RNA sequence: UCACGGCUGGCGGGGAAACCGUUACCAUUACUGAGUUUAGUAAUGGUAAUGGUUCUGCCGACAGUCGGACG
Numbered sequence: 001u002c003a004c005g006g007c008u009g010g011c012g013g014g015g016a017a018a019c020c021g022u023u024a025c026c027a028u029u030a031c032u033g034a035g036u037u038u039a040g041u042a043a044u045g046g047u048a049a050u051g052g053u054u055c056u057g058c059c060g061a062c063a064g065u066c067g068g069a070c071g
Base pairs, nucleotide, nucleotide: 007064008063009062011060012059013058017054018053019052020051022049023048024047025046026045027044028043029042030041031040032039033038
About this RNA: Shown here is a 71-nucleotide RNA from Cuculus canorus, a member of the family "mir-451 microRNA precursor family". Rfam 15.1 lists 658 matches to the family in 500 species. Its family is annotated with RISC complex and miRNA-mediated post-transcriptional gene silencing in the Gene Ontology. A reference for the family is Yu et al. (2010), "miR-451 protects against erythroid oxidant stress by repressing 14-3-3zeta", Genes Dev. A search with the family's covariance model found it, with a score of 80 bits. Lineage of the source: Eukaryota > Metazoa > Chordata > Coelurosauria > Cuculus. The family's consensus secondary structure was predicted with RNAalifold.